[Rfam]
RNA sequence: AGGCGUGUUGUAUUCUGGGUCCCAAAAGGGCUUGGAGCAACUGGGGCAGCACGUCUCGGUGGGUUGCGAGUAGCGCAGUUGGUAGCGCAAUGGCCCUCUAAGCCAUCGGUCGCCGGUUCAAAUCCGGCCUCACGAUAACAAAACGCAAAGCCUGUCCCGGUUGCGUGUGAAAGAUGCCUAAUGCCCAGCCCUGCGGGGAACUGGGUCACCUGAAGGUCGCAAGCUGGAGGGUGUCGGUGAGGAAGAGAUCGUAGCGGUGUAGCAGCCGCGAAGAGCCCGCAAGGCUCACGGUCGACGAGACGCCGAAUAGCACGCAGCGACGCGCGAAACGCCACGCGCUAAAAAAGGCGGCAUUGACGAAUACGUCGAGACAUAGCAAUAUGCUCGGCGUGGACAUCCCGAGAACCACGCUCGCAAGGCGUCGGAUAAUGCGGGAAGGUCGUCAUCGAAAGCGGUAGUCUCACGCU
Numbered sequence: 001a002g003g004c005g006u007g008u009u010g011u012a013u014u015c016u017g018g019g020u021c022c023c024a025a026a027a028g029g030g031c032u033u034g035g036a037g038c039a040a041c042u043g044g045g046g047c048a049g050c051a052c053g054u055c056u057c058g059g060u061g062g063g064u065u066g067c068g069a070g071u072a073g074c075g076c077a078g079u080u081g082g083u084a085g086c087g088c089a090a091u092g093g094c095c096c097u098c099u100a101a102g103c104c105a106u107c108g109g110u111c112g113c114c115g116g117u118u119c120a121a122a123u124c125c126g127g128c129c130u131c132a133c134g135a136u137a138a139c140a141a142a143a144c145g146c147a148a149a150g151c152c153u154g155u156c157c158c159g160g161u162u163g164c165g166u167g168u169g170a171a172a173g174a175u176g177c178c179u180a181a182u183g184c185c186c187a188g189c190c191c192u193g194c195g196g197g198g199a200a201c202u203g204g205g206u207c208a209c210c211u212g213a214a215g216g217u218c219g220c221a222a223g224c225u226g227g228a229g230g231g232u233g234u235c236g237g238u239g240a241g242g243a244a245g246a247g248a249u250c251g252u253a254g255c256g257g258u259g260u261a262g263c264a265g266c267c268g269c270g271a272a273g274a275g276c277c278c279g280c281a282a283g284g285c286u287c288a289c290g291g292u293c294g295a296c297g298a299g300a301c302g303c304c305g306a307a308u309a310g311c312a313c314g315c316a317g318c319g320a321c322g323c324g325c326g327a328a329a330c331g332c333c334a335c336g337c338g339c340u341a342a343a344a345a346a347g348g349c350g351g352c353a354u355u356g357a358c359g360a361a362u363a364c365g366u367c368g369a370g371a372c373a374u375a376g377c378a379a380u381a382u383g384c385u386c387g388g389c390g391u392g393g394a395c396a397u398c399c400c401g402a403g404a405a406c407c408a409c410g411c412u413c414g415c416a417a418g419g420c421g422u423c424g425g426a427u428a429a430u431g432c433g434g435g436a437a438g439g440u441c442g443u444c445a446u447c448g449a450a451a452g453c454g455g456u457a458g459u460c461u462c463a464c465g466c467u
Stems, first nucleotide, its partner, number of pairs: 001056006007041005014036009043158007145220002160318009174354005183206006189198003207233005215225003236304004249291004254269004273287005331349003356444005362392008393460003398435004403430001452466003

Shown here is a 467-nucleotide RNA from Pseudaminobacter soli, a member of the family "Giant, ornate, lake- and Lactobacillales-derived (GOLLD) RNA".
Taxonomically the source falls in Pseudaminobacter (Bacteria, Pseudomonadati, Pseudomonadota, Phyllobacteriaceae).
The family's RNA type in Rfam is non-coding RNA gene.